About this RNA:
A member of the RNA family "tRNA" from Hortaea werneckii, 112 nucleotides long. The source organism's lineage runs through Eukaryota, saccharomyceta, Pezizomycotina, Dothideomycetes and Hortaea. Its family is annotated with triplet codon-amino acid adaptor activity in the Gene Ontology.
RNA sequence: GGCGGAGUAGCAAAGUGGUUACUGCGAUUGACUCGAAGUGGUUUAGUGUGUAUAAUCAAACCACAGACAUCAAUUGCCUUCGGGCGCGCAGGUUCGAAUCCUGCCUCCGUCG
Numbered sequence: 001g002g003c004g005g006a007g008u009a010g011c012a013a014a015g016u017g018g019u020u021a022c023u024g025c026g027a028u029u030g031a032c033u034c035g036a037a038g039u040g041g042u043u044u045a046g047u048g049u050g051u052a053u054a055a056u057c058a059a060a061c062c063a064c065a066g067a068c069a070u071c072a073a074u075u076g077c078c079u080u081c082g083g084g085c086g087c088g089c090a091g092g093u094u095c096g097a098a099u100c101c102u103g104c105c106u107c108c109g110u111c112g
Stems, first nucleotide, its partner, number of pairs: 001111007010025003027074005088104005